This 262-nucleotide RNA from Ciona savignyi belongs to the Rfam family "RNase MRP". Rfam classes the family as a ribozyme. RNase MRP is an enzymatically active ribonucleoprotein with two distinct roles in eukaryotes. Rfam links the family to the GO terms ribonuclease MRP activity, ribonuclease MRP complex and rRNA processing.
RNA sequence: CUGCACUUGGAAGACUUGCUAUCUAAGUCAUUAUGGGCAAAAGGGACCCUAUGGCUUAGGGGAAAGUCCCCGGACACUGGGUAGAGAGUACCUGGGGUGUAACCCCCCACACCUGAUCUAAACCACCUGGGGUUAUACACCUUGGACCAAGCUAAGAUGCAUUGCGGAGCUUGUGGGUACGGUUGGGCUUAGUCGAAGCACAGUCAUGCAAGUGGCUAGUUGUAAUGCUAGCUAACUCAAUGGGGCUCACUCUCCAAGUGCA
Numbered sequence: 001c002u003g004c005a006c007u008u009g010g011a012a013g014a015c016u017u018g019c020u021a022u023c024u025a026a027g028u029c030a031u032u033a034u035g036g037g038c039a040a041a042a043g044g045g046a047c048c049c050u051a052u053g054g055c056u057u058a059g060g061g062g063a064a065a066g067u068c069c070c071c072g073g074a075c076a077c078u079g080g081g082u083a084g085a086g087a088g089u090a091c092c093u094g095g096g097g098u099g100u101a102a103c104c105c106c107c108c109a110c111a112c113c114u115g116a117u118c119u120a121a122a123c124c125a126c127c128u129g130g131g132g133u134u135a136u137a138c139a140c141c142u143u144g145g146a147c148c149a150a151g152c153u154a155a156g157a158u159g160c161a162u163u164g165c166g167g168a169g170c171u172u173g174u175g176g177g178u179a180c181g182g183u184u185g186g187g188c189u190u191a192g193u194c195g196a197a198g199c200a201c202a203g204u205c206a207u208g209c210a211a212g213u214g215g216c217u218a219g220u221u222g223u224a225a226u227g228c229u230a231g232c233u234a235a236c237u238c239a240a241u242g243g244g245g246c247u248c249a250c251u252c253u254c255c256a257a258g259u260g261c262a
Stems, first nucleotide, its partner, number of pairs: 002262010014213006022060007029044001031042002034039001065247002068245004080092004095114006116189001118187001124185002127182003137178002140175001149172004159165002215232006